The record is a 104-nucleotide sequence from Actinomycetospora cinnamomea, which matches "Glycine riboswitch aptamer" in Rfam. The match comes from Rfam's covariance-model search (68 bits). The pairing is the family consensus, mapped onto this sequence.

[Rfam]
RNA sequence: GGACACCGCGCGGGAGAGACCUGCACACAGAAGCCUCUGGGCGCAGGCGCCGAAGGAGCAACUCCUCCCCGGAACCUCUCAGGCAACCCGACCGCGCGGAGGAG
Numbered sequence: 001g002g003a004c005a006c007c008g009c010g011c012g013g014g015a016g017a018g019a020c021c022u023g024c025a026c027a028c029a030g031a032a033g034c035c036u037c038u039g040g041g042c043g044c045a046g047g048c049g050c051c052g053a054a055g056g057a058g059c060a061a062c063u064c065c066u067c068c069c070c071g072g073a074a075c076c077u078c079u080c081a082g083g084c085a086a087c088c089c090g091a092c093c094g095c096g097c098g099g100a101g102g103a104g
Stems, first nucleotide, its partner, number of pairs: 006099008020047004049084003052080002056078003062072002